RNA: sul1 RNA
RNA sequence: CUUGGACCCGGCCCUGCCGGGUGGCUCGUCCGGGCGCCUAUCCCCCGGAAACCU
Numbered sequence: 001c002u003u004g005g006a007c008c009c010g011g012c013c014c015u016g017c018c019g020g021g022u023g024g025c026u027c028g029u030c031c032g033g034g035c036g037c038c039u040a041u042c043c044c045c046c047g048g049a050a051a052c053c054u
Stems, first nucleotide, its partner, number of pairs: 006022006029049006